About this RNA:
The family of this 65-nucleotide RNA from Geotrypetes seraphini is "mir-375 microRNA precursor family". On this family, see Chen et al., Genes Dev 2005: "The developmental miRNA profiles of zebrafish as determined by small RNA cloning". Lineage of the source: Eukaryota > Chordata > Craniata > Gymnophiona > Geotrypetes.
RNA sequence: CCUCACGCCGAGCCAGACGCGCAAUGCCUUCAAUGCGCGCUUUGUUCGUUCGGCUCGCGUUAAGC
Numbered sequence: 001c002c003u004c005a006c007g008c009c010g011a012g013c014c015a016g017a018c019g020c021g022c023a024a025u026g027c028c029u030u031c032a033a034u035g036c037g038c039g040c041u042u043u044g045u046u047c048g049u050u051c052g053g054c055u056c057g058c059g060u061u062a063a064g065c
Base pairs, nucleotide, nucleotide: 001064003062005060006059007058009057010056011055012054013053014052018048019047021045022044023043024042026040027039